A member of the RNA family "ctgf/hcs24 CAESAR" from Xenopus tropicalis, 75 nucleotides long. The 3' UTR of human connective tissue growth factor/hypertrophic chondrocyte specific 24 (ctgf/hcs24) mRNA has been shown to repress ctgf gene expression. Reference identified a minimal RNA element, predicted to form a stable secondary structure, which acts as a post-transcriptional cis-acting element of structure-anchored repression (CAESAR), probably through direct interactions with as yet unknown nuclear factors. It is annotated as a cis-regulatory element. The family's consensus secondary structure is taken from published work. A reference for the family is Kubota et al. (2000), "Identification of an RNA element that confers post-transcriptional repression of connective tissue growth factor/hypertrophic chondrocyte specific 24 (ctgf/hcs24) gene: similarities to retroviral RNA-protein interactions", Oncogene. A search with the family's covariance model found it, with a score of 55 bits.
[Rfam]
RNA sequence: AUGGGGACAUGGCAUAGAGCCAGAGAGCCACAUUUCAAAGACUUUUUCACUUGAAAUAACUUUGCAUCUCAUUGC
Numbered sequence: 001a002u003g004g005g006g007a008c009a010u011g012g013c014a015u016a017g018a019g020c021c022a023g024a025g026a027g028c029c030a031c032a033u034u035u036c037a038a039a040g041a042c043u044u045u046u047u048c049a050c051u052u053g054a055a056a057u058a059a060c061u062u063u064g065c066a067u068c069u070c071a072u073u074g075c
Stems, first nucleotide, its partner, number of pairs: 004070004010022004027065002030062001